[Rfam]
RNA sequence: GGGCGAUUGGCGCAGCGGGAGCGCAGAUGCUUUACACGCAUAAGGUCGGGGGUUCAAAUCCCUCAUCGCCCA
Numbered sequence: 001g002g003g004c005g006a007u008u009g010g011c012g013c014a015g016c017g018g019g020a021g022c023g024c025a026g027a028u029g030c031u032u033u034a035c036a037c038g039c040a041u042a043a044g045g046u047c048g049g050g051g052g053u054u055c056a057a058a059u060c061c062c063u064c065a066u067c068g069c070c071c072a
Base pairs, nucleotide, nucleotide: 001071002070003069004068005067006066007065010024011023012022013021027041028040029039030038048064049063050062051061052060
RNA: tRNA
Organism: Slackia heliotrinireducens